[Rfam]
A member of the RNA family "ctRNA" from Microvirga alba, 44 nucleotides long. Rfam describes the family as follows. This family represents a group of ctRNAs (or counter-transcribed RNAs) from p42d and related plasmids. ctRNAs are small, highly structured, antisense sequences which are involved in negative regulation. Members of this family are known to bind to the mRNA of repC causing translational repression. This model contains the predicted stem-loop structure followed by a U-rich tract which is proposed to act as a Rho-independent transcriptional terminator. It scores 51 bits against the family's covariance model. The source organism's lineage runs through Bacteria, Pseudomonadati, Pseudomonadota, Alphaproteobacteria and Microvirga. For this family Rfam cites "Two discrete elements are required for the replication of a repABC plasmid: an antisense RNA and a stem-loop structure" (Venkova-Canova et al., Mol Microbiol, 2004).

RNA sequence: AGAAGGGCUUCCGGGGCUAUGUUUCGGGGGCCUUUUUCUUUUGC
Dot-bracket structure: ....((((((((..((.....))..))))))))...........